[Rfam]
RNA sequence: AUGUCUUCAACUUACGAGUAAGAAAAAUAAUGGUUCAGGGCGACACCUAAAUCCUCACUGCUGUUGGGAGACGAUGUUUUGAGCAGGUAAAGGUCACCCCUAAGGUGACCUGCCACUUUGCAGGAUACCUGGGAGUCACAGUCACCCUG
Numbered sequence: 001a002u003g004u005c006u007u008c009a010a011c012u013u014a015c016g017a018g019u020a021a022g023a024a025a026a027a028u029a030a031u032g033g034u035u036c037a038g039g040g041c042g043a044c045a046c047c048u049a050a051a052u053c054c055u056c057a058c059u060g061c062u063g064u065u066g067g068g069a070g071a072c073g074a075u076g077u078u079u080u081g082a083g084c085a086g087g088u089a090a091a092g093g094u095c096a097c098c099c100c101u102a103a104g105g106u107g108a109c110c111u112g113c114c115a116c117u118u119u120g121c122a123g124g125a126u127a128c129c130u131g132g133g134a135g136u137c138a139c140a141g142u143c144a145c146c147c148u149g
Stems, first nucleotide, its partner, number of pairs: 004023004032053004037048003054070003058066001084149004092143003100133002103130005109124005